[Rfam]
Nucleotides: 068
Base pairs, nucleotide, nucleotide: 025063026062027061028060029059030058031057032056033055034054035052036051037050
Number, partner (000 for none) and nucleotide at each position: 001000g002000a003000g004000u005000g006000u007000g008000u009000g010000a011000g012000g013000a014000g015000c016000g017000a018000a019000c020000c021000a022000g023000c024000a025063a026062g027061a028060g029059c030058a031057c032056c033055g034054a035052g036051a037050c038000g039000a040000a041000a042000c043000a044000c045000g046000g047000c048000a049000a050037g051036u052035c053000g054034u055033c056032g057031g058030u059029g060028c061027u062026c063025u064000u065000u066000c067000u068000g
Shown here is a 68-nucleotide sequence from Leptolyngbya sp. FACHB-321, a member of the family "Cyano-1 RNA". It scores 42 bits against the family's covariance model. The source organism's lineage runs through Bacteria, Bacillati, Leptolyngbyales, Leptolyngbyaceae and Leptolyngbya. By type it is a small RNA.